[Rfam]
RNA sequence: AUAUACACUGCGUGGCCAGAUUAUUAUGACCACUAAACCCAUAAUAAUCUGGCCACUCAGUGUAUAU
Numbered sequence: 001a002u003a004u005a006c007a008c009u010g011c012g013u014g015g016c017c018a019g020a021u022u023a024u025u026a027u028g029a030c031c032a033c034u035a036a037a038c039c040c041a042u043a044a045u046a047a048u049c050u051g052g053c054c055a056c057u058c059a060g061u062g063u064a065u066a067u
Stems, first nucleotide, its partner, number of pairs: 004064007012056006019049010